[Rfam]
RNA sequence: UGAAACUCAAUAAACAAACAAUGCAAACAAUUUUAAAUAAUACAUGGUGGUGGAGUUCCCGAAAUCAAAUUUUCGUGAAUUAGACCCUAUUGUAUAUUUAAAUUUCAAUAUAAAGGCUUGUC
Number, nucleotide and partner (000 for none) at each position: 001u000002g000003a000004a000005a000006c000007u000008c000009a000010a000011u000012a000013a000014a000015c000016a000017a000018a000019c000020a000021a000022u000023g000024c000025a000026a000027a000028c000029a000030a000031u000032u000033u000034u000035a000036a099037a098038u000039a000040a095041u094042a093043c092044a091045u000046g000047g088048u000049g086050g085051u084052g000053g000054a000055g000056u079057u000058c077059c000060c075061g074062a000063a072064a071065u000066c000067a000068a000069a000070u000071u064072u063073u000074c061075g060076u000077g058078a000079a056080u000081u000082a000083g000084a051085c050086c049087c000088u047089a000090u000091u044092g043093u042094a041095u040096a000097u000098u037099u036100a000101a000102a000103u000104u000105u000106c000107a000108a000109u000110a000111u000112a000113a000114a000115g000116g000117c000118u000119u000120g000121u000122c000